RNA: Ribosomal protein L20 leader
Organism: Salibacterium salarium
RNA sequence: CAAAGCAAGCAGAAGCGCCCGCUUCUCACCUGAUUGACGCUUAAGGCUGUCGGCAGGUCACGGUGAAUGUACUAACCAACAGUGGGCGCAGUAUGUAUGCGCCCGCUUUUUUGUGUUUGA
Numbered sequence: 001c002a003a004a005g006c007a008a009g010c011a012g013a014a015g016c017g018c019c020c021g022c023u024u025c026u027c028a029c030c031u032g033a034u035u036g037a038c039g040c041u042u043a044a045g046g047c048u049g050u051c052g053g054c055a056g057g058u059c060a061c062g063g064u065g066a067a068u069g070u071a072c073u074a075a076c077c078a079a080c081a082g083u084g085g086g087c088g089c090a091g092u093a094u095g096u097a098u099g100c101g102c103c104c105g106c107u108u109u110u111u112u113g114u115g116u117u118u119g120a
Stems, first nucleotide, its partner, number of pairs: 011026006028058003036051003039047002081107010